[Rfam]
RNA: mir-1343 microRNA precursor family
Organism: Microcebus murinus
RNA sequence: CUGGCCUCGGUGCUGGGGAGUGGCCCCUGGGGUGGGCCUUGCUCUGGCCCCUCCUGGGGUCCUCACUCUUGCUCUGGGCCCG
Numbered sequence: 001c002u003g004g005c006c007u008c009g010g011u012g013c014u015g016g017g018g019a020g021u022g023g024c025c026c027c028u029g030g031g032g033u034g035g036g037c038c039u040u041g042c043u044c045u046g047g048c049c050c051c052u053c054c055u056g057g058g059g060u061c062c063u064c065a066c067u068c069u070u071g072c073u074c075u076g077g078g079c080c081c082g
Base pairs, nucleotide, nucleotide: 003080004079005078007077008076009075010074012072013071015069016068017067018066020064022062023061025059026058027057028056029055030054031053034050035049036048037047038046